[Rfam]
RNA sequence: GGGGUUGGGCGAUGCAGAGAUCGUCUCCCAUGUUCUCGCCGGCCUCGACCUCGACUACAACCCGGUCGUGUCGGCUCUUGCAGCGCGGGUCGAGCCUGUGACUGUCCAGGAAUUAUUCAACCAAUUACUCAGCUUCGACG
Numbered sequence: 001g002g003g004g005u006u007g008g009g010c011g012a013u014g015c016a017g018a019g020a021u022c023g024u025c026u027c028c029c030a031u032g033u034u035c036u037c038g039c040c041g042g043c044c045u046c047g048a049c050c051u052c053g054a055c056u057a058c059a060a061c062c063c064g065g066u067c068g069u070g071u072c073g074g075c076u077c078u079u080g081c082a083g084c085g086c087g088g089g090u091c092g093a094g095c096c097u098g099u100g101a102c103u104g105u106c107c108a109g110g111a112a113u114u115a116u117u118c119a120a121c122c123a124a125u126u127a128c129u130c131a132g133c134u135u136c137g138a139c140g
Base pairs, nucleotide, nucleotide: 004139005138006137007136008135090108092106093105

The family of this 140-nucleotide RNA sequence from Triticum aestivum is "Small nucleolar RNA Z247". The literature on the family includes a 2003 paper in Nucleic Acids Res by Chen et al., "The high diversity of snoRNAs in plants: identification and comparative study of 120 snoRNA genes from Oryza sativa". Rfam links the family to the GO terms nucleolus and RNA processing. It is annotated as a C/D-box small nucleolar RNA.